[Rfam]
RNA sequence: CUAAGUGGUUUGCAGGCUAAACCCGUGACUCCUGUCACAACGCCUGCACUUGCACGUCCUGUGCA
Numbered sequence: 001c002u003a004a005g006u007g008g009u010u011u012g013c014a015g016g017c018u019a020a021a022c023c024c025g026u027g028a029c030u031c032c033u034g035u036c037a038c039a040a041c042g043c044c045u046g047c048a049c050u051u052g053c054a055c056g057u058c059c060u061g062u063g064c065a
Stems, first nucleotide, its partner, number of pairs: 011048007025038005051065005
A member of the RNA family "Bacillaceae-1 RNA" from Oceanobacillus oncorhynchi, 65 nucleotides long. Pairs were carried over by alignment from the consensus structure, which is taken from published work. It scores 53 bits against the family's covariance model.